[Rfam]
RNA: Small nucleolar RNA snoR104
Organism: Cucurbita maxima
RNA sequence: GGGGAGCAUCUAAAAGCAGGAUGCUACCUGAUACAAUCUUCCUACAUAGUACAUCUGUAUUUUCCUGCUUAUAGAAUCGAGCACAUUCUACAAGCCUCAAAAUACCAGAGACAUAA
Numbered sequence: 001g002g003g004g005a006g007c008a009u010c011u012a013a014a015a016g017c018a019g020g021a022u023g024c025u026a027c028c029u030g031a032u033a034c035a036a037u038c039u040u041c042c043u044a045c046a047u048a049g050u051a052c053a054u055c056u057g058u059a060u061u062u063u064c065c066u067g068c069u070u071a072u073a074g075a076a077u078c079g080a081g082c083a084c085a086u087u088c089u090a091c092a093a094g095c096c097u098c099a100a101a102a103u104a105c106c107a108g109a110g111a112c113a114u115a116a
Stems, first nucleotide, its partner, number of pairs: 001029003005025007054109003067095004072090003076086002